FMN riboswitch aptamer (RFN element): a 139-nucleotide RNA sequence from Thermophilibacter immobilis.
The match comes from Rfam's covariance-model search (107 bits).

RNA sequence: UGUCGGUUUCAGGGCGGGGUGCAACUCCCCACUGGCGGUAACGAGCCCAUGCGCUCGAAGUCCGCGACCCGCUAAAACAGCGGCUGACCUGGUGCGAUUCCAGGACCAACGGUGACAGUCCGGAUGGAAGAAACGGAGA
Numbered sequence: 001u002g003u004c005g006g007u008u009u010c011a012g013g014g015c016g017g018g019g020u021g022c023a024a025c026u027c028c029c030c031a032c033u034g035g036c037g038g039u040a041a042c043g044a045g046c047c048c049a050u051g052c053g054c055u056c057g058a059a060g061u062c063c064g065c066g067a068c069c070c071g072c073u074a075a076a077a078c079a080g081c082g083g084c085u086g087a088c089c090u091g092g093u094g095c096g097a098u099u100c101c102a103g104g105a106c107c108a109a110c111g112g113u114g115a116c117a118g119u120c121c122g123g124a125u126g127g128a129a130g131a132a133a134c135g136g137a138g139a
Stems, first nucleotide, its partner, number of pairs: 003137002006134005017029003031119002033108002035065004060106002069083002088104005110122003